[Rfam]
RNA sequence: UUCGCCGAGGGGCGCUGCGACCGAGACCACUGGAGUCCGGCCAGGCUCGGUGAACAGUUCCUGCAACGGCGCCCGGAUAAC
Dot-bracket structure: .(((((((............(((.(..........).)))......)))))))............................
Numbered sequence: 001u002u003c004g005c006c007g008a009g010g011g012g013c014g015c016u017g018c019g020a021c022c023g024a025g026a027c028c029a030c031u032g033g034a035g036u037c038c039g040g041c042c043a044g045g046c047u048c049g050g051u052g053a054a055c056a057g058u059u060c061c062u063g064c065a066a067c068g069g070c071g072c073c074c075g076g077a078u079a080a081c
Stems, first nucleotide, its partner, number of pairs: 002053007021040003025036001

Rfam assigns this 81-nucleotide sequence from Pseudoxanthomonas sp. CF125 to the family "SAH (S-adenosyl-L-homocysteine) riboswitch aptamer".
The base pairs follow the family's consensus structure, which is taken from published work.
The source organism's lineage runs through Bacteria, Pseudomonadati, Gammaproteobacteria, Lysobacterales and Pseudoxanthomonas.
Rfam links the family to the GO terms regulation of gene expression and S-adenosylhomocysteine metabolic process.
The match comes from Rfam's covariance-model search (58 bits).